[Rfam]
RNA sequence: GACCUGUAUUCCGAACUGUCACCGGACGGUGGCGUGGCUGGGACAACCAGUCUAGGAACGUGGUCGGAA
Numbered sequence: 001g002a003c004c005u006g007u008a009u010u011c012c013g014a015a016c017u018g019u020c021a022c023c024g025g026a027c028g029g030u031g032g033c034g035u036g037g038c039u040g041g042g043a044c045a046a047c048c049a050g051u052c053u054a055g056g057a058a059c060g061u062g063g064u065c066g067g068a069a
Stems, first nucleotide, its partner, number of pairs: 001065004006061002009058004017034007036052005
This 69-nucleotide RNA sequence belongs to the Rfam family "DUF3800-IX RNA".
The family's consensus secondary structure is taken from published work.